[Rfam]
RNA sequence: CCGGAUGUACGACCAUCCGUAGCCUACUUGGGCAUGCGUCACCGGCAACGGUGAGGUGUGAAGCCCCGAGGACAAUGCACCCCCGCUUCGGCGGGAUAGGCUACCUGCGAGGGUAGCGAUCGAUACUGCCAGCAGCAAGGUGGUUAAGGGG
Numbered sequence: 001c002c003g004g005a006u007g008u009a010c011g012a013c014c015a016u017c018c019g020u021a022g023c024c025u026a027c028u029u030g031g032g033c034a035u036g037c038g039u040c041a042c043c044g045g046c047a048a049c050g051g052u053g054a055g056g057u058g059u060g061a062a063g064c065c066c067c068g069a070g071g072a073c074a075a076u077g078c079a080c081c082c083c084c085g086c087u088u089c090g091g092c093g094g095g096a097u098a099g100g101c102u103a104c105c106u107g108c109g110a111g112g113g114u115a116g117c118g119a120u121c122g123a124u125a126c127u128g129c130c131a132g133c134a135g136c137a138a139g140g141u142g143g144u145u146a147a148g149g150g151g
Stems, first nucleotide, its partner, number of pairs: 002019006028069005033060005039054006083094004095121003105112002125144006
RNA: Group II catalytic intron D1-D4-7
Organism: Noviherbaspirillum sp. Root189